The record is a 98-nucleotide RNA sequence from Handroanthus impetiginosus, which matches "mir-172 microRNA precursor family" in Rfam. Taxonomically the source falls in Handroanthus (Eukaryota, Viridiplantae, Streptophytina, Mesangiospermae). Rfam links the family to the GO terms miRNA-mediated post-transcriptional gene silencing and RISC complex. A search with the family's covariance model found it, with a score of 72 bits. Rfam 15.1 lists 2,076 matches to the family in 219 species. mir-172 has been experimentally verified in Arabidopsis thaliana.
RNA sequence: GUAUUUGCCAAUGCAGCAUCAUCAAGAUUCUCAUUUCACAUCUCUAUAUAGUGACGCUAGUUGAAUGUGAAUCUUGAUGACGCUGCAUUUGCAAAGAA
Numbered sequence: 001g002u003a004u005u006u007g008c009c010a011a012u013g014c015a016g017c018a019u020c021a022u023c024a025a026g027a028u029u030c031u032c033a034u035u036u037c038a039c040a041u042c043u044c045u046a047u048a049u050a051g052u053g054a055c056g057c058u059a060g061u062u063g064a065a066u067g068u069g070a071a072u073c074u075u076g077a078u079g080a081c082g083c084u085g086c087a088u089u090u091g092c093a094a095a096g097a098a
Base pairs, nucleotide, nucleotide: 010089011088012087013086014085015084016083017082019080020079021078022077023076024075025074026073027072028071029070030069032067033066